[Rfam]
RNA sequence: AUAUUUUAGCCUACAUUUCAGCUCCGGAGAGGUUACUAACUGGUAAUACAUAACAACUAUUCUGUUCUAAUCAGUGUGAAAACUGGUUUCCUGGAUUUCAUCCGGGUUCAAUUUCACAUUCAUUUUUGGGCCUUCCGGGCGCGCUAGCUUGCUAGUGUCGGCUGGAGCGGUCUCCGGGGGCUUUCACCUCUCCCCCGCGAGGCCAACCACUA
Number, nucleotide and partner (000 for none) at each position: 001a000002u000003a000004u000005u000006u000007u052008a000009g000010c000011c000012u000013a000014c000015a000016u000017u000018u000019c000020a000021g000022c000023u000024c000025c000026g000027g000028a000029g000030a000031g000032g000033u000034u000035a000036c000037u000038a000039a000040c000041u000042g000043g000044u000045a000046a000047u000048a000049c000050a000051u000052a007053a000054c000055a000056a000057c000058u000059a000060u000061u000062c000063u000064g000065u000066u000067c000068u000069a088070a087071u086072c085073a084074g083075u000076g000077u000078g000079a000080a000081a000082a000083c074084u073085g072086g071087u070088u069089u000090c106091c105092u104093g103094g102095a101096u100097u000098u000099c000100a096101u095102c094103c093104g092105g091106g090107u000108u000109c000110a000111a000112u000113u000114u000115c000116a000117c000118a000119u000120u000121c000122a000123u000124u000125u000126u000127u000128g000129g000130g000131c000132c000133u000134u000135c165136c164137g163138g162139g000140c160141g159142c000143g000144c155145u154146a153147g152148c000149u000150u000151g000152c147153u146154a145155g144156u000157g000158u000159c141160g140161g000162c138163u137164g136165g135166a000167g000168c000169g204170g203171u202172c201173u200174c000175c197176g196177g195178g194179g193180g192181c000182u000183u000184u000185c000186a000187c000188c000189u000190c000191u000192c180193c179194c178195c177196c176197g175198c000199g000200a173201g172202g171203c170204c169205a000206a000207c000208c000209a000210c000211u000212a000
The record is a 212-nucleotide sequence from Nothophytophthora sp. Chile5, which matches "U2 spliceosomal RNA" in Rfam.
About the family: U2 is a small nuclear RNA (snRNA) component of the spliceosome (involved in pre-mRNA splicing). Complementary binding between U2 snRNA (in an area lying towards the 5' end but 3' to hairpin I) and the branchpoint sequence (BPS) of the intron results the bulging out of an unpaired adenosine, on the BPS, which initiates a nucleophilic attack at the intronic 5' splice site, thus starting the first of two transesterification reactions that mediate splicing.
Clan: U2 clan.
Rfam links the family to the GO terms mRNA branch site recognition, pre-mRNA branch point binding and U2 snRNP.
By type it is a spliceosomal small nuclear RNA.